Shown here is a 219-nucleotide sequence from Parvularcula mediterranea, a member of the family "permuted transfer-messenger RNA". By type it is a non-coding RNA gene. It scores 141 bits against the family's covariance model. The family's consensus secondary structure is taken from published work.
Nucleotides: 219
Stems, first nucleotide, its partner, number of pairs: 001142005014132001017129001026121002030118003036052005053103007143155004
Number, partner (000 for none) and nucleotide at each position: 001142g002141a003140c004139g005138a006000u007000a008000a009000a010000u011000g012000g013000c014132g015000u016000u017129c018000g019000u020000a021000a022000u023000a024000a025000g026121c027120g028000g029000a030118c031117u032116g033000g034000a035000c036052c037051c038050g039049g040048g041000g042000g043000c044000g045000g046000u047000a048040c049039c050038c051037g052036g053103c054102g055101g056100c057099u058098c059097c060000a061000c062000c063000c064000a065000a066000g067000u068000u069000c070000u071000c072000a073000c074000c075000a076000a077000g078000c079000a080000a081000a082000g083000g084000u085000g086000a087000g088000a089000g090000u091000u092000u093000c094000g095000g096000a097059g098058g099057g100056g101055c102054c103053g104000a105000a106000a107000u108000a109000g110000c111000a112000u113000c114000g115000a116032c117031a118030g119000a120027c121026g122000u123000g124000u125000a126000a127000a128000g129017g130000c131000u132014c133000u134000g135000c136000u137000u138005u139004c140003g141002u142001u143155c144154g145153g146152a147000u148000g149000g150000c151000c152146u153145c154144c155143g156000u157000u158000a159000u160000u161000g162000g163000g164000c165000c166000a167000u168000u169000a170000u171000u172000a173000u174000a175000g176000u177000u178000g179000c180000a181000a182000a183000u184000g185000a186000c187000a188000a189000c190000u191000a192000c193000g194000a195000u196000g197000a198000a199000g200000g201000u202000u203000u204000u205000g206000c207000u208000c209000u210000c211000g212000c213000u214000g215000c216000g217000u218000a219000a